[Rfam]
RNA sequence: CCGCCAAAGCAAGUAUUACCUUUGGCGGUUCGUGUAGCAGUAGCA
Numbered sequence: 001c002c003g004c005c006a007a008a009g010c011a012a013g014u015a016u017u018a019c020c021u022u023u024g025g026c027g028g029u030u031c032g033u034g035u036a037g038c039a040g041u042a043g044c045a
Base pairs, nucleotide, nucleotide: 001028002027003026004025005024006023007022008021009020
RNA: ssNA-helicase RNA
Organism: Eggerthella sp. YY7918